[Rfam]
This 149-nucleotide RNA from Gellertiella hungarica belongs to the Rfam family "Alphaproteobacterial sRNA ar7".
Lineage of the source: Bacteria > Pseudomonadota > Hyphomicrobiales > Rhizobiaceae > Gellertiella.
RNA sequence: UACCGGCGCUUGGAAGCCGCCGACGUCCGAUUGCCCGCCCGUCCCCCGCUUGGCAGUCGGACCCGGACAAAGGCCUUAUCCCCCUCUCCGGGCCUUUGUCCCCUCUUUCAGUGCCGCCAUGGCUCGCCUCCAGGCCAUGGCGGCCUCCC
Dot-bracket structure: .........................(((((((....((.........)).....)))))))...(((((((((((...............))))))))))).........(..(((((((((((........))))))))))).)....
It scores 100 bits against the family's covariance model. It is annotated as a small RNA.